[Rfam]
RNA: Mammalian CPEB3 ribozyme
RNA sequence: GGAGGGAAAGAGGGGCAUAGAAGGAGCGUUCACGUCACAGCCUCUGUCAGGUUCUCAAAUACGCAAAUCCUGUU
Numbered sequence: 001g002g003a004g005g006g007a008a009a010g011a012g013g014g015g016c017a018u019a020g021a022a023g024g025a026g027c028g029u030u031c032a033c034g035u036c037a038c039a040g041c042c043u044c045u046g047u048c049a050g051g052u053u054c055u056c057a058a059a060u061a062c063g064c065a066a067a068u069c070c071u072g073u074u
Stems, first nucleotide, its partner, number of pairs: 012044005019074002022071004026038001028036001048063001051060003